RNA: gyrA RNA
RNA sequence: UCAUGAGUCGUUGCUGGCCCCAAGGCCGCGACGGCGAGCUCCACGUCAUUCAGGAUGAAUGCGCGGAGUUUCACCAGAAAAAGGAA
Numbered sequence: 001u002c003a004u005g006a007g008u009c010g011u012u013g014c015u016g017g018c019c020c021c022a023a024g025g026c027c028g029c030g031a032c033g034g035c036g037a038g039c040u041c042c043a044c045g046u047c048a049u050u051c052a053g054g055a056u057g058a059a060u061g062c063g064c065g066g067a068g069u070u071u072c073a074c075c076a077g078a079a080a081a082a083g084g085a086a
Stems, first nucleotide, its partner, number of pairs: 007035008018025002036071007044063002047061005